[Rfam]
RNA sequence: GCUUCGAGGAGCGCUGCGACUUGCGUGGUUUGCAAGCCAGGCUCGGAGCAUUCGACAGGAACGGCGCUCACCCACU
Numbered sequence: 001g002c003u004u005c006g007a008g009g010a011g012c013g014c015u016g017c018g019a020c021u022u023g024c025g026u027g028g029u030u031u032g033c034a035a036g037c038c039a040g041g042c043u044c045g046g047a048g049c050a051u052u053c054g055a056c057a058g059g060a061a062c063g064g065c066g067c068u069c070a071c072c073c074a075c076u
Stems, first nucleotide, its partner, number of pairs: 001049007020036006